[Rfam]
RNA sequence: CAGCCAGUAAAUAAAUCUGCUUAGUUGAAUGUGUUGGCAGAAUUUAGAAAUAGCUGGCAAUAGUAAAACCAUGUUAUGAGCCUUUAUGGCAUUGAGGUUGUUAAGGUCCCUUAAAGUAACUACAGAA
Numbered sequence: 001c002a003g004c005c006a007g008u009a010a011a012u013a014a015a016u017c018u019g020c021u022u023a024g025u026u027g028a029a030u031g032u033g034u035u036g037g038c039a040g041a042a043u044u045u046a047g048a049a050a051u052a053g054c055u056g057g058c059a060a061u062a063g064u065a066a067a068a069c070c071a072u073g074u075u076a077u078g079a080g081c082c083u084u085u086a087u088g089g090c091a092u093u094g095a096g097g098u099u100g101u102u103a104a105g106g107u108c109c110c111u112u113a114a115a116g117u118a119a120c121u122a123c124a125g126a127a
Stems, first nucleotide, its partner, number of pairs: 003058005016041005071117001080107005086101001088099003
RNA: Small nucleolar RNA SNORA33